[Rfam]
RNA sequence: GGGGCUGCCCUGGUUUCGACGUGGGUUCGGAAUCGGCGUGGUGCAUGUCGAGCUUGAUUGGCGCUCGUAAAUCUGCAUUCAAAAAACUAACUGCAAACGACGAACGUUUCGCACUCGCUGCUUAAUUGCCAGUGAGCCUUGCAACAGUUGGCCGAUGGGCUGGGCAAGGGGGUAUCGAGCAAUCGCUGCCUCCCGGCUGCAAGGAUAAUUACAUGGGCUGGUCCUGAUCCGGGUACCUUGGGUUGGGGCGAGACAAUAGGGUGCUGGCGGCCGGUAGAGCGUGCGACUGCGCGAUGCCGGUGGCGAGACUUAAAUCAGACCGCUAAACAUGUAGAUCUGCCCGGUAAAGGCUUGCGGACGCGGGUUCAAUUCCCGCCAGCUCCACCA
Number, nucleotide and partner (000 for none) at each position: 001g383002g382003g381004g380005c379006u378007g377008c000009c000010c000011u000012g000013g000014u000015u000016u000017c000018g000019a000020c356021g355022u354023g353024g352025g351026u350027u349028c000029g000030g000031a000032a345033u344034c343035g342036g341037c000038g340039u339040g338041g337042u000043g000044c331045a330046u329047g328048u327049c067050g066051a065052g064053c063054u082055u081056g080057a079058u000059u077060g076061g000062c000063g053064c052065u051066c050067g049068u000069a000070a000071a000072u000073c000074u000075g000076c060077a059078u000079u057080c056081a055082a054083a000084a000085a000086a000087c000088u000089a000090a000091c000092u000093g000094c000095a000096a000097a000098c000099g000100a000101c000102g000103a000104a000105c000106g000107u000108u000109u000110c000111g000112c000113a000114c136115u135116c134117g133118c132119u131120g130121c000122u000123u000124a000125a000126u000127u000128g000129c000130c120131a119132g118133u117134g116135a115136g114137c204138c203139u202140u201141g200142c199143a000144a000145c000146a000147g000148u000149u000150g000151g218152c217153c216154g000155a214156u213157g212158g000159g000160c000161u000162g000163g000164g000165c000166a000167a000168g000169g000170g000171g000172g000173u000174a000175u000176c000177g000178a000179g000180c000181a000182a000183u000184c000185g000186c000187u000188g000189c000190c000191u000192c000193c000194c000195g000196g000197c000198u000199g142200c141201a140202a139203g138204g137205a000206u000207a000208a000209u000210u000211a000212c157213a156214u155215g000216g153217g152218c151219u000220g000221g249222u248223c247224c246225u245226g244227a243228u242229c241230c000231g265232g264233g000234u000235a000236c260237c000238u000239u000240g000241g229242g228243u227244u226245g225246g224247g223248g222249c221250g000251a000252g000253a000254c000255a000256a000257u000258a000259g000260g236261g000262u000263g000264c232265u231266g000267g304268c303269g000270g301271c300272c299273g298274g297275u296276a295277g000278a000279g292280c291281g290282u000283g323284c322285g321286a000287c000288u000289g315290c281291g280292c279293g000294a000295u276296g275297c274298c273299g272300g271301u270302g000303g268304c267305g000306a000307g000308a000309c000310u000311u000312a000313a000314a000315u289316c000317a000318g000319a000320c000321c285322g284323c283324u000325a000326a000327a048328c047329a046330u045331g044332u000333a000334g000335a000336u000337c041338u040339g039340c038341c036342c035343g034344g033345u032346a000347a000348a000349g027350g026351c025352u024353u023354g022355c021356g020357g000358a000359c000360g376361c375362g374363g373364g372365u000366u000367c000368a000369a000370u000371u000372c364373c363374c362375g361376c360377c007378a006379g005380c004381u003382c002383c001384a000385c000386c000387a000
The record is a 387-nucleotide sequence from Simplicispira hankyongi, which matches "transfer-messenger RNA" in Rfam. A reference for the family is Williams and Bartel (1996), "Phylogenetic analysis of tmRNA secondary structure", RNA. The organism belongs to Simplicispira, within Bacteria. The base pairs follow the family's consensus structure, which is taken from published work. The family's RNA type in Rfam is non-coding RNA gene.